[Rfam]
RNA sequence: GCGUAUCGACAGGGGAGCGCCACCCGGGCGCUGAGAGUGCAUACGGAAGAGAUUCCCAGCAGACCCUCACACCUGAUCCGGUUCGCACCGGCGUAGGGAGUUGAGUUCUCAUACCC
Numbered sequence: 001g002c003g004u005a006u007c008g009a010c011a012g013g014g015g016a017g018c019g020c021c022a023c024c025c026g027g028g029c030g031c032u033g034a035g036a037g038u039g040c041a042u043a044c045g046g047a048a049g050a051g052a053u054u055c056c057c058a059g060c061a062g063a064c065c066c067u068c069a070c071a072c073c074u075g076a077u078c079c080g081g082u083u084c085g086c087a088c089c090g091g092c093g094u095a096g097g098g099a100g101u102u103g104a105g106u107u108c109u110c111a112u113a114c115c116c
Stems, first nucleotide, its partner, number of pairs: 006104005011067004017031005038061003072097004078091004
Dot-bracket structure: .....(((((((((..(((((.....)))))......(((..................)))..))))....((((..((((......))))..))))..)))))............

Shown here is a 116-nucleotide RNA from Ruaniaceae bacterium KH17, a member of the family "TPP riboswitch aptamer (THI element)".
Lineage of the source: Bacteria > Actinomycetota > Actinomycetes > Micrococcales > Ruaniaceae.
Pairs were carried over by alignment from the consensus structure, which is taken from published work.
The match comes from Rfam's covariance-model search (62 bits).